Notes:
The record is a 673-nucleotide RNA from Thermanaerothrix daxensis, which matches "Group I catalytic intron" in Rfam. Taxonomically the source falls in Thermanaerothrix (Bacteria, Chloroflexota, Anaerolineales, Anaerolineaceae). From the family's description: Group I catalytic introns are large self-splicing ribozymes.
RNA sequence: CGGCGGCCGUAACUCUAACGGUCCUAAGGUUCAUUCGCGAGCCUUAGUAAAACCGAACUAUAUGCGGGAAACUCCUCGUACAGCCACGCGGUACUCGUUCAUCCUGAGGAUGGGCAGUAAAAAUCCGCUGGACAUGGGGACAAUCCGCAGGGAAGGCUUCCAUGAAUGACACAGAGUGGAAUGAAAAUUUGGAAGAACCCUCAGAGACUUUACGUUCGGUCCCGUCUGGUAUGAAACUUGAGGCGCAGUGGGUAGUGGGCUUUGUGGAUGGCGAGGGAUGCUUCUAUGUGGGCAUCAAUCCGCAUCCGGAGACGAGCACGGGCUAUCAGGUGCUGCCGGAAUUCACGGUGGUUCAACACGAACGUGAUGUGCAGAUCCUGUAUGCUCUCAAGCAGUUCUUUGGGUGUGGGGUGGUGCGGCGUAAUCACGGUGAUCGAAUGGCGUACCGCGUACGCAAGAUUGAACACCUGCGUGAACGGAUCAUUCCGUUCUUCGAGAAGCAUCCGCUUAAAACCAAAAAGCACCUGGAUUUUCUCAAAUUCCGUCGUGUCUUGCUCCUGAUGGAGCGCAAUGAACAUCUCACGGCGGAGGGCAUUGAAAAAAUCCGCGCCAUUGCUGCCACGAUGAAUACCGGGCGGGAAAGAUAAAGUCCGGCUCCUCUGGAAACAGAGCG
Numbered sequence: 001c002g003g004c005g006g007c008c009g010u011a012a013c014u015c016u017a018a019c020g021g022u023c024c025u026a027a028g029g030u031u032c033a034u035u036c037g038c039g040a041g042c043c044u045u046a047g048u049a050a051a052a053c054c055g056a057a058c059u060a061u062a063u064g065c066g067g068g069a070a071a072c073u074c075c076u077c078g079u080a081c082a083g084c085c086a087c088g089c090g091g092u093a094c095u096c097g098u099u100c101a102u103c104c105u106g107a108g109g110a111u112g113g114g115c116a117g118u119a120a121a122a123a124u125c126c127g128c129u130g131g132a133c134a135u136g137g138g139g140a141c142a143a144u145c146c147g148c149a150g151g152g153a154a155g156g157c158u159u160c161c162a163u164g165a166a167u168g169a170c171a172c173a174g175a176g177u178g179g180a181a182u183g184a185a186a187a188u189u190u191g192g193a194a195g196a197a198c199c200c201u202c203a204g205a206g207a208c209u210u211u212a213c214g215u216u217c218g219g220u221c222c223c224g225u226c227u228g229g230u231a232u233g234a235a236a237c238u239u240g241a242g243g244c245g246c247a248g249u250g251g252g253u254a255g256u257g258g259g260c261u262u263u264g265u266g267g268a269u270g271g272c273g274a275g276g277g278a279u280g281c282u283u284c285u286a287u288g289u290g291g292g293c294a295u296c297a298a299u300c301c302g303c304a305u306c307c308g309g310a311g312a313c314g315a316g317c318a319c320g321g322g323c324u325a326u327c328a329g330g331u332g333c334u335g336c337c338g339g340a341a342u343u344c345a346c347g348g349u350g351g352u353u354c355a356a357c358a359c360g361a362a363c364g365u366g367a368u369g370u371g372c373a374g375a376u377c378c379u380g381u382a383u384g385c386u387c388u389c390a391a392g393c394a395g396u397u398c399u400u401u402g403g404g405u406g407u408g409g410g411g412u413g414g415u416g417c418g419g420c421g422u423a424a425u426c427a428c429g430g431u432g433a434u435c436g437a438a439u440g441g442c443g444u445a446c447c448g449c450g451u452a453c454g455c456a457a458g459a460u461u462g463a464a465c466a467c468c469u470g471c472g473u474g475a476a477c478g479g480a481u482c483a484u485u486c487c488g489u490u491c492u493u494c495g496a497g498a499a500g501c502a503u504c505c506g507c508u509u510a511a512a513a514c515c516a517a518a519a520a521g522c523a524c525c526u527g528g529a530u531u532u533u534c535u536c537a538a539a540u541u542c543c544g545u546c547g548u549g550u551c552u553u554g555c556u557c558c559u560g561a562u563g564g565a566g567c568g569c570a571a572u573g574a575a576c577a578u579c580u581c582a583c584g585g586c587g588g589a590g591g592g593c594a595u596u597g598a599a600a601a602a603a604u605c606c607g608c609g610c611c612a613u614u615g616c617u618g619c620c621a622c623g624a625u626g627a628a629u630a631c632c633g634g635g636c637g638g639g640a641a642a643g644a645u646a647a648a649g650u651c652c653g654g655c656u657c658c659u660c661u662g663g664a665a666a667c668a669g670a671g672c673g
Stems, first nucleotide, its partner, number of pairs: 052220005058214001063149006073140007150200002157195004165188001167186001204652001206651005222638011658671005